[Rfam]
RNA sequence: GAGCUUACCGUUAUGGCGAGCCUAAAUCUUAACAGGAUGGAGGCGAAGGGAAACCGAAUUUCCGCAACAUUGUGAGGGAAAGCGUGUGAAAGUGCGUAGAGUCAUAGCGGCAAGGCUAGAAGCCGAGCGAUCUAUCCCUGAGCAAGCUGAAGGCGGGCGAAAGCCCGUUGGAGGGCUGAAGCAGUUCUAACGUGCAAAUUGUUUGUCUGACUUGGGGAUAGGGGUCAAAAACCAAUCUAGCUCGGCGCUCGCUAGUU
Numbered sequence: 001g002a003g004c005u006u007a008c009c010g011u012u013a014u015g016g017c018g019a020g021c022c023u024a025a026a027u028c029u030u031a032a033c034a035g036g037a038u039g040g041a042g043g044c045g046a047a048g049g050g051a052a053a054c055c056g057a058a059u060u061u062c063c064g065c066a067a068c069a070u071u072g073u074g075a076g077g078g079a080a081a082g083c084g085u086g087u088g089a090a091a092g093u094g095c096g097u098a099g100a101g102u103c104a105u106a107g108c109g110g111c112a113a114g115g116c117u118a119g120a121a122g123c124c125g126a127g128c129g130a131u132c133u134a135u136c137c138c139u140g141a142g143c144a145a146g147c148u149g150a151a152g153g154c155g156g157g158c159g160a161a162a163g164c165c166c167g168u169u170g171g172a173g174g175g176c177u178g179a180a181g182c183a184g185u186u187c188u189a190a191c192g193u194g195c196a197a198a199u200u201g202u203u204u205g206u207c208u209g210a211c212u213u214g215g216g217g218a219u220a221g222g223g224g225u226c227a228a229a230a231a232c233c234a235a236u237c238u239a240g241c242u243c244g245g246c247g248c249u250c251g252c253u254a255g256u257u
Stems, first nucleotide, its partner, number of pairs: 005113002008110010020044004026038004048055002060080004067073002083096004116255002119252001123245006132221011143209001145177004152169007181206004187201001189200002223233003
Archaeal large subunit ribosomal RNA: a 257-nucleotide part of an RNA from Candidatus Nitrosotenuis cloacae. Its Rfam clan is "LSU clan". The organism belongs to Candidatus Nitrosotenuis, within Archaea. The base pairs follow the family's consensus structure, which is taken from published work.